This 85-nucleotide RNA sequence from Tyto alba belongs to the Rfam family "Small nucleolar RNA SNORD100". The family's consensus secondary structure was predicted with RNAalifold. A reference for the family is Huttenhofer et al. (2001), "RNomics: an experimental approach that identifies 201 candidates for novel, small, non-messenger RNAs in mouse", EMBO J. Its family is annotated with RNA processing and nucleolus in the Gene Ontology. Lineage of the source: Eukaryota > Sauria > Archosauria > Telluraves > Tyto. Rfam classes the family as a C/D-box small nucleolar RNA.

RNA sequence: UGCAUCUGUGAUGAAAAUUUGGCUCCCUCUGCUGAAACAAAUGAGGAAAAUGGCCUUAACUGUUACCCUAAUAUUCUGAGAUGCU
Numbered sequence: 001u002g003c004a005u006c007u008g009u010g011a012u013g014a015a016a017a018u019u020u021g022g023c024u025c026c027c028u029c030u031g032c033u034g035a036a037a038c039a040a041a042u043g044a045g046g047a048a049a050a051u052g053g054c055c056u057u058a059a060c061u062g063u064u065a066c067c068c069u070a071a072u073a074u075u076c077u078g079a080g081a082u083g084c085u
Base pairs, nucleotide, nucleotide: 002084003083004082005081006080